The family of this 127-nucleotide RNA from Pan troglodytes is "Small nucleolar RNA SNORA75". From the family's description: U23 belongs to the H/ACA class of snoRNAs. snoRNAs bind a number of proteins (including dyskerin, Gar1p and Nop10p in the case of the H/ACA class) to form snoRNP complexes. This class are thought to guide the sites of modification of uridines to pseudouridines by forming direct base pairing interactions with substrate RNAs. Targets include ribosomal and spliceosomal RNAs as well as the Trypanosoma spliced leader RNA (SL RNA) as possibly other, still unknown cellular RNAs. Pairs were carried over by alignment from the consensus structure, which was predicted with PFOLD. The source organism's lineage runs through Eukaryota, Metazoa, Vertebrata, Teleostomi and Pan. By type it is an H/ACA-box small nucleolar RNA.
[Rfam]
RNA sequence: GACUUCUCACUGAGCUUCUUUCUGUCUGUUGGUGGCAGCUUAUGGAUUCAUAUGAGCAGAGAGAAUCACAGAACUAGCAUUACUUUUGUCUUUACAGGAGUAUAUUUGGCUGUCUUGUGAGAUAUUA
Number, nucleotide and partner (000 for none) at each position: 001g000002a000003c059004u058005u000006c056007u055008c054009a000010c000011u000012g000013a000014g051015c000016u046017u045018c044019u000020u000021u000022c038023u037024g036025u035026c034027u000028g000029u000030u000031g000032g000033u000034g026035g025036c024037a023038g022039c000040u000041u000042a000043u000044g018045g017046a016047u000048u000049c000050a000051u014052a000053u000054g008055a007056g006057c000058a004059g003060a000061g000062a000063g000064a000065a000066u120067c119068a118069c117070a116071g115072a000073a000074c000075u000076a000077g000078c000079a000080u000081u000082a000083c100084u099085u098086u097087u096088g095089u000090c000091u000092u000093u000094a000095c088096a087097g086098g085099a084100g083101u000102a000103u000104a000105u000106u000107u000108g000109g000110c000111u000112g000113u000114c000115u071116u070117g069118u068119g067120a066121g000122a000123u000124a000125u000126u000127a000